The family of this 123-nucleotide RNA sequence from Arthrobacter mobilis is "SAM (S-adenosyl methionine) riboswitch aptamer".

RNA sequence: AAUCAGGAGUCCCGACGUCAAGCCCUGGCUGGUUGGGCGGCAACCCUCAUCGCUGUAGUGGGGUGCCCCAGGUGAUGAUUCGACGCGGCUUCGGCGCAGGACCGGGCCGCGUAAGUAUGGCGC
Number, nucleotide and partner (000 for none) at each position: 001a080002a079003u078004c077005a000006g000007g000008a000009g038010u000011c037012c036013c035014g034015a033016c032017g000018u000019c000020a000021a030022g029023c000024c000025c000026u000027g000028g000029c022030u021031g000032g016033u015034u014035g013036g012037g011038c009039g067040g066041c065042a000043a000044c063045c062046c061047u000048c058049a000050u000051c000052g000053c000054u000055g000056u000057a000058g048059u000060g000061g046062g045063g044064u000065g041066c040067c039068c000069c000070a000071g000072g000073u000074g000075a000076u000077g004078a003079u002080u001081c000082g000083a112084c111085g110086c109087g108088g107089c106090u105091u104092c000093g000094g000095c000096g000097c000098a000099g000100g000101a000102c000103c000104g091105g090106g089107c088108c087109g086110c085111g084112u083113a000114a000115g000116u000117a000118u000119g000120g000121c000122g000123c000
It scores 79 bits against the family's covariance model. Taxonomically the source falls in Arthrobacter (Bacteria, Bacillati, Actinomycetes, Micrococcaceae). The base pairs follow the family's consensus structure, which is taken from published work. From the family's description: SAM-IV is a mRNA element that regulates gene expression via direct sensing of S-adenosylmethionine (SAM or AdoMet).